The record is a 65-nucleotide RNA, which matches "Cyano-1 RNA" in Rfam. Rfam's curators put it in the seed alignment. The family's RNA type in Rfam is small RNA.

RNA sequence: GGAUCUGUGAGGAAAAACGCCUCACAGGGUGGAAACAAGGACACACUCCUGCGAGCCGUUUUGGA
Numbered sequence: 001g002g003a004u005c006u007g008u009g010a011g012g013a014a015a016a017a018c019g020c021c022u023c024a025c026a027g028g029g030u031g032g033a034a035a036c037a038a039g040g041a042c043a044c045a046c047u048c049c050u051g052c053g054a055g056c057c058g059u060u061u062u063g064g065a
Stems, first nucleotide, its partner, number of pairs: 015061005022054002026050003029046003